RNA sequence: AAAGUCCGUCACGAUGAAGCAUUAGCGAACCGCAUCGGCCCCGAGCCGUGCGCAGGCGUCCGCGAGGUCGUCGGCGAAGCGUCGGCAGGGGAGCGUACAGGCCAGCCAUUGAGCCGCGAAAGUUACAUAUCCCGGGCGCCGACGGCGUUGAGUAGUCGGAAGGCGAGACGGACAGGCGCGUCAACGCGAGCGCCUGGCUGGCCCGGCGUGGUCGAAUACCC
Numbered sequence: 001a002a003a004g005u006c007c008g009u010c011a012c013g014a015u016g017a018a019g020c021a022u023u024a025g026c027g028a029a030c031c032g033c034a035u036c037g038g039c040c041c042c043g044a045g046c047c048g049u050g051c052g053c054a055g056g057c058g059u060c061c062g063c064g065a066g067g068u069c070g071u072c073g074g075c076g077a078a079g080c081g082u083c084g085g086c087a088g089g090g091g092a093g094c095g096u097a098c099a100g101g102c103c104a105g106c107c108a109u110u111g112a113g114c115c116g117c118g119a120a121a122g123u124u125a126c127a128u129a130u131c132c133c134g135g136g137c138g139c140c141g142a143c144g145g146c147g148u149u150g151a152g153u154a155g156u157c158g159g160a161a162g163g164c165g166a167g168a169c170g171g172a173c174a175g176g177c178g179c180g181u182c183a184a185c186g187c188g189a190g191c192g193c194c195u196g197g198c199u200g201g202c203c204c205g206g207c208g209u210g211g212u213c214g215a216a217u218a219c220c221c
Stems, first nucleotide, its partner, number of pairs: 012037005019031001022028001023189001025187002039091004045086004049081002051076003055072004060067002110215001111213001113212006132206006138164003143158004169200003173196007
The family of this 221-nucleotide RNA from Lichenifustis flavocetrariae is "Group II catalytic intron D1-D4-6". The pairing is the family consensus, mapped onto this sequence. Rfam's curators write: Group II introns are found in rRNA, tRNA and mRNA of organelles in fungi, plants and protists, and also in mRNA in bacteria. Taxonomically the source falls in Lichenifustis (Bacteria, Alphaproteobacteria, Hyphomicrobiales, Lichenihabitantaceae).